RNA: SAM riboswitch aptamer (S box leader)
Organism: Propionigenium maris
RNA sequence: CUCUUAUCAAGAGAGGCUGAGGGACUGGCCCUAUGACGCCCGGCAACCUACCCAUUGUGGUGUGGUGCCAAUUCCAGAGCUCAAUAAAUACGAGCUUAAAGAUGAGAA
Numbered sequence: 001c002u003c004u005u006a007u008c009a010a011g012a013g014a015g016g017c018u019g020a021g022g023g024a025c026u027g028g029c030c031c032u033a034u035g036a037c038g039c040c041c042g043g044c045a046a047c048c049u050a051c052c053c054a055u056u057g058u059g060g061u062g063u064g065g066u067g068c069c070a071a072u073u074c075c076a077g078a079g080c081u082c083a084a085u086a087a088a089u090a091c092g093a094g095c096u097u098a099a100a101g102a103u104g105a106g107a108a
Base pairs, nucleotide, nucleotide: 002107003106004105005104006103007102008101013041015040016039017038021031022030023029025077026076027075028074042069043068044067045066047065048064049062050061051060052059073100078096079095080094081093082092